[Rfam]
Background: Shown here is a 130-nucleotide RNA sequence from Streptomyces liangshanensis, a member of the family "Streptomyces RNA 5676". The family's RNA type in Rfam is small RNA. A reference for the family is Vockenhuber et al. (2011), "Deep sequencing-based identification of small non-coding RNAs in Streptomyces coelicolor", RNA Biol. The source organism's lineage runs through Bacteria, Bacillati, Actinomycetota, Streptomycetaceae and Streptomyces. From the family's description: Identified by deep sequencing of transcriptome at the end of exponential growth phase. Pairs were carried over by alignment from the consensus structure. It scores 110 bits against the family's covariance model.
RNA sequence: AGAUGAGAGAAACACCCCGCUCGCAGGGGACUGCGGGCGACACCGGAUCGGGGCGUCCCCAGCACCGUUCCGGCCGUGCCUUCGCGCACACCACCGGGGCUUCUGGCUCCGGGUCUCCUCAUGGAUCGGA
Numbered sequence: 001a002g003a004u005g006a007g008a009g010a011a012a013c014a015c016c017c018c019g020c021u022c023g024c025a026g027g028g029g030a031c032u033g034c035g036g037g038c039g040a041c042a043c044c045g046g047a048u049c050g051g052g053g054c055g056u057c058c059c060c061a062g063c064a065c066c067g068u069u070c071c072g073g074c075c076g077u078g079c080c081u082u083c084g085c086g087c088a089c090a091c092c093a094c095c096g097g098g099g100c101u102u103c104u105g106g107c108u109c110c111g112g113g114u115c116u117c118c119u120c121a122u123g124g125a126u127c128g129g130a
Stems, first nucleotide, its partner, number of pairs: 004121004009117002018039009043073005049067003053063002076089004094112006100105001122129001
Dot-bracket structure: ...((((.((.......(((((((((....)))))))))...(((((.(((.((.......)).))).)))))..((((......))))....(((((((....).))))))...))))))(......).